[Rfam]
RNA sequence: ACAGUAAGUCAGCCUAAUCCAAGCUCAGCUGCUUUUGUUCUAGCAGCGCCCCUUGGAGCGGAGGAACCACCUUUUGGGGCUUAUCGCUGGUUGCCCCCUGUCCUUGCAGACAGGCCAAUCAGGAAGAGCAUCUCUCAGCUCUCGCCCGUCAGCUAACUCCGUAGGCCUUGAGAGGAGACUGA
Number, nucleotide and partner (000 for none) at each position: 001a000002c000003a000004g000005u000006a000007a000008g000009u000010c000011a000012g166013c165014c164015u000016a000017a000018u057019c056020c055021a054022a053023g052024c000025u000026c000027a000028g000029c000030u000031g000032c000033u000034u000035u000036u000037g000038u000039u000040c000041u000042a000043g000044c000045a000046g000047c000048g000049c000050c000051c000052c023053u022054u021055g020056g019057a018058g162059c161060g160061g159062a158063g157064g000065a000066a000067c000068c076069a075070c000071c000072u000073u000074u000075u069076g068077g147078g146079g145080c000081u000082u000083a000084u000085c123086g000087c122088u121089g120090g119091u118092u117093g116094c000095c000096c000097c000098c000099u000100g000101u000102c000103c000104u000105u000106g000107c000108a000109g000110a000111c000112a000113g000114g000115c000116c093117a092118a091119u090120c089121a088122g087123g085124a000125a000126g141127a140128g139129c138130a000131u000132c000133u000134c000135u000136c000137a000138g129139c128140u127141c126142u000143c000144g000145c079146c078147c077148g000149u000150c000151a000152g000153c000154u000155a000156a000157c063158u062159c061160c060161g059162u058163a000164g014165g013166c012167c000168u000169u000170g000171a000172g000173a000174g000175g000176a000177g000178a000179c000180u000181g000182a000
The family of this 182-nucleotide RNA from Geitlerinema sp. PCC 7407 is "c-di-AMP riboswitch aptamer (ydaO/yuaA leader)".
It scores 59 bits against the family's covariance model.
Lineage of the source: Bacteria > Cyanobacteriota > Cyanophyceae > Geitlerinematales > Geitlerinema.